[Rfam]
RNA: U11 spliceosomal RNA
RNA sequence: AAAAAGGGCCUCUACCGAUCAUGGUACGCGGGAUGGUCUCAUGACCACAAGUCCUGUGCGGAAUCGCAAUCAAGAGAUUUCGGAGGCACAAUUUUUAUAUUCAGUGGCAGCUGGUGCUCAUACGGCCCGGCGCCCAA
Number, nucleotide and partner (000 for none) at each position: 001a000002a000003a000004a000005a000006g000007g000008g087009c086010c085011u084012c083013u026014a025015c024016c023017g022018a000019u000020c000021a000022u017023g016024g015025u014026a013027c058028g057029c056030g055031g054032g053033a052034u051035g046036g045037u044038c043039u000040c000041a000042u000043g038044a037045c036046c035047a000048c000049a000050a000051g034052u033053c032054c031055u030056g029057u028058g027059c082060g081061g080062a079063a078064u077065c076066g000067c000068a000069a000070u000071c000072a000073a000074g000075a000076g065077a064078u063079u062080u061081c060082g059083g012084a011085g010086g009087c008088a000089c000090a000091a000092u000093u000094u000095u000096u000097a000098u000099a000100u000101u000102c000103a000104g000105u000106g134107g133108c132109a000110g131111c130112u129113g128114g127115u000116g126117c125118u124119c000120a000121u000122a000123c000124g118125g117126c116127c114128c113129g112130g111131c110132g108133c107134c106135c000136a000137a000